Shown here is a 115-nucleotide RNA from Chenopodium quinoa, a member of the family "Small nucleolar RNA Z278".
The family has 7 seed sequences and 1,130 matches in Rfam 15.1.
snoZ278 is a C/D box small nucleolar RNA. Its methylation guide targets have not been reported.
Gene Ontology terms of the family: nucleolus and RNA processing.

[Rfam]
RNA sequence: GCCAGUGAUGAUAAAGUCCAAUUAAAUGAGGUGUAGUGGAUCUGAGUCCCUGUUUAACAGGGGGAACCUCUCGGUGAAACUACAUUCAUAUGAUAUUACUGGAUUUGACUGAGGU
Numbered sequence: 001g002c003c004a005g006u007g008a009u010g011a012u013a014a015a016g017u018c019c020a021a022u023u024a025a026a027u028g029a030g031g032u033g034u035a036g037u038g039g040a041u042c043u044g045a046g047u048c049c050c051u052g053u054u055u056a057a058c059a060g061g062g063g064g065a066a067c068c069u070c071u072c073g074g075u076g077a078a079a080c081u082a083c084a085u086u087c088a089u090a091u092g093a094u095a096u097u098a099c100u101g102g103a104u105u106u107g108a109c110u111g112a113g114g115u
Stems, first nucleotide, its partner, number of pairs: 001115003048062005